[Rfam]
RNA: MIR828 microRNA precursor family
RNA sequence: CUAAAGUUUCUUGCUCAAAUGAGUAUUCCAAUCUGCUUUCUCUCCCUACAUACAAGCUUGAUUUUUGGGGCAUGAGAUGGGCUCUGUGAUACUCAUUUCAGCAAGCAACCUUAC
Numbered sequence: 001c002u003a004a005a006g007u008u009u010c011u012u013g014c015u016c017a018a019a020u021g022a023g024u025a026u027u028c029c030a031a032u033c034u035g036c037u038u039u040c041u042c043u044c045c046c047u048a049c050a051u052a053c054a055a056g057c058u059u060g061a062u063u064u065u066u067g068g069g070g071c072a073u074g075a076g077a078u079g080g081g082c083u084c085u086g087u088g089a090u091a092c093u094c095a096u097u098u099c100a101g102c103a104a105g106c107a108a109c110c111u112u113a114c
Base pairs, nucleotide, nucleotide: 004111006109007108008107010105011104012103013102014101015100017098018097019096020095021094022093023092024091025090026089027088029086030085